[Rfam]
A member of the RNA family "U4 spliceosomal RNA" from Nomascus leucogenys, 139 nucleotides long.
RNA sequence: AAACUUAUGUAAGUAGCAGUAUUAUCGCCAAUGAGGUUUAUCUGUGGCACAAUUCUCACUCACUGAAAAAUCCCAACACCCAGCCAUGAAAACUCGCAAUAUAAUCGGCAUUAGCAACUUUUGACAGUCUCUAUGGAGA
Numbered sequence: 001a002a003a004c005u006u007a008u009g010u011a012a013g014u015a016g017c018a019g020u021a022u023u024a025u026c027g028c029c030a031a032u033g034a035g036g037u038u039u040a041u042c043u044g045u046g047g048c049a050c051a052a053u054u055c056u057c058a059c060u061c062a063c064u065g066a067a068a069a070a071u072c073c074c075a076a077c078a079c080c081c082a083g084c085c086a087u088g089a090a091a092a093c094u095c096g097c098a099a100u101a102u103a104a105u106c107g108g109c110a111u112u113a114g115c116a117a118c119u120u121u122u123g124a125c126a127g128u129c130u131c132u133a134u135g136g137a138g139a
Stems, first nucleotide, its partner, number of pairs: 021053003025049001027048003035043002083115002086111003092105001094103001128139004
About this RNA:
The base pairs follow the family's consensus structure, which is taken from published work. The organism belongs to Nomascus, within Eukaryota. Rfam 15.1 lists 32,178 matches to the family in 2,547 species.